The record is an 81-nucleotide sequence from Flavobacterium pygoscelis, which matches "Flavo-1 RNA" in Rfam. The family's consensus secondary structure is taken from published work. Rfam classes the family as a small RNA. Rfam 15.1 lists 7,497 matches to the family in 411 species.
RNA sequence: UUAUAGCCCCGAUUGUAGAGGAAAUCCUUUUUAUGAGCUUUUUAGCGAACAAAAAGAUUGUACUGAAAAGCGGGAAGGGUU
Numbered sequence: 001u002u003a004u005a006g007c008c009c010c011g012a013u014u015g016u017a018g019a020g021g022a023a024a025u026c027c028u029u030u031u032u033a034u035g036a037g038c039u040u041u042u043u044a045g046c047g048a049a050c051a052a053a054a055a056g057a058u059u060g061u062a063c064u065g066a067a068a069a070g071c072g073g074g075a076a077g078g079g080u081u
Stems, first nucleotide, its partner, number of pairs: 009073003013069002018064001023059004029054004034049001